[Rfam]
RNA sequence: GACGAUAAAUUGCGGCGUGCAAUAGGCACGGCGGACCCGGGGGCAGUACCCGGCGGCUCCACCAUUGCGUUCGCCUCCACCGAGCAAGUGGGCGGACGCAUUGUUGGGGCCGAACCAGGAUCGACGCGUGUUGAAAGGCGCUGUUUUCGUCCGGGCUGAGUAACCCGUUAAAGGCUCAAAACCAAUAAGUGCCAACGAUAACGAAGCACUUGCUCUCGCUGCGUAA
Numbered sequence: 001g002a003c004g005a006u007a008a009a010u011u012g013c014g015g016c017g018u019g020c021a022a023u024a025g026g027c028a029c030g031g032c033g034g035a036c037c038c039g040g041g042g043g044c045a046g047u048a049c050c051c052g053g054c055g056g057c058u059c060c061a062c063c064a065u066u067g068c069g070u071u072c073g074c075c076u077c078c079a080c081c082g083a084g085c086a087a088g089u090g091g092g093c094g095g096a097c098g099c100a101u102u103g104u105u106g107g108g109g110c111c112g113a114a115c116c117a118g119g120a121u122c123g124a125c126g127c128g129u130g131u132u133g134a135a136a137g138g139c140g141c142u143g144u145u146u147u148c149g150u151c152c153g154g155g156c157u158g159a160g161u162a163a164c165c166c167g168u169u170a171a172a173g174g175c176u177c178a179a180a181a182c183c184a185a186u187a188a189g190u191g192c193c194a195a196c197g198a199u200a201a202c203g204a205a206g207c208a209c210u211u212g213c214u215c216u217c218g219c220u221g222c223g224u225a226a
Base pairs, nucleotide, nucleotide: 001151002150003149004148005147015141016140017139018138027130028129029128031127032126033125037053038052039051040050041049054112055111056110057109058108059107060106152167153166154165155164
Rfam assigns this 226-nucleotide RNA sequence from Pseudoblastomonas halimionae to the family "permuted transfer-messenger RNA". NCBI's taxonomy places the organism under Bacteria, Pseudomonadota, Alphaproteobacteria, Erythrobacteraceae, Pseudoblastomonas. The base pairs follow the family's consensus structure, which is taken from published work. A search with the family's covariance model found it, with a score of 143 bits.